[Rfam]
RNA sequence: UCAUGGUGGUAGCUGGGGCCAGCCCCAUGGUGGUAGCUGG
Numbered sequence: 001u002c003a004u005g006g007u008g009g010u011a012g013c014u015g016g017g018g019c020c021a022g023c024c025c026c027a028u029g030g031u032g033g034u035a036g037c038u039g040g
Base pairs, nucleotide, nucleotide: 001030002029003028004027005026006025

The family of this 40-nucleotide RNA is "Prion pseudoknot". Rfam's curators put it in the seed alignment. This family represents a predicted pseudoknot structure found in prion protein mRNA. It has been suggested that the family has a possible effect in prion protein translation.